[Rfam]
About this RNA:
The record is a 70-nucleotide RNA sequence from Trifolium subterraneum, which matches "Small nucleolar RNA U61" in Rfam. The base pairs follow the family's consensus structure, which was predicted with WAR. By type it is a C/D-box small nucleolar RNA. The family is grouped with related families in Rfam's "SNORD61 clan". For this family Rfam cites "Plant snoRNA database" (Brown et al., Nucleic Acids Res, 2003). Rfam 15.1 lists 401 matches to the family in 204 species.
RNA sequence: GAGCUUUGAUGAAAAAUACUGUGCUGGAGAGAAUCGAUGAUGGCGCAAUCCUCUAAGAAGUUCUGAGCUC
Numbered sequence: 001g002a003g004c005u006u007u008g009a010u011g012a013a014a015a016a017u018a019c020u021g022u023g024c025u026g027g028a029g030a031g032a033a034u035c036g037a038u039g040a041u042g043g044c045g046c047a048a049u050c051c052u053c054u055a056a057g058a059a060g061u062u063c064u065g066a067g068c069u070c
Base pairs, nucleotide, nucleotide: 001070002069003068004067